[Rfam]
RNA sequence: ACGAUGUUCCGCUGCAAUCUGAAGAUGUGCAUGAGCGUCUG
Numbered sequence: 001a002c003g004a005u006g007u008u009c010c011g012c013u014g015c016a017a018u019c020u021g022a023a024g025a026u027g028u029g030c031a032u033g034a035g036c037g038u039c040u041g
Stems, first nucleotide, its partner, number of pairs: 003039007013031004
Rfam assigns this 41-nucleotide RNA from Bacillus sp. cl95 to the family "Ribosomal protein L19 leader". Its family is annotated with regulation of gene expression in the Gene Ontology. The match comes from Rfam's covariance-model search (43 bits). NCBI's taxonomy places the organism under Bacteria, Bacillota, Caryophanales, Bacillaceae, Bacillus. From the family's description: This family is a putative r-protein leader autoregulatory structure found in B. subtilis and other low-GC Gram-positive bacteria. It is located in the 5' untranslated regions of mRNAs encoding ribosomal protein L19 (rplS). For this family Rfam cites "Diverse mechanisms for regulating ribosomal protein synthesis in Escherichia coli" (Zengel and Lindahl, Prog Nucleic Acid Res Mol Biol, 1994).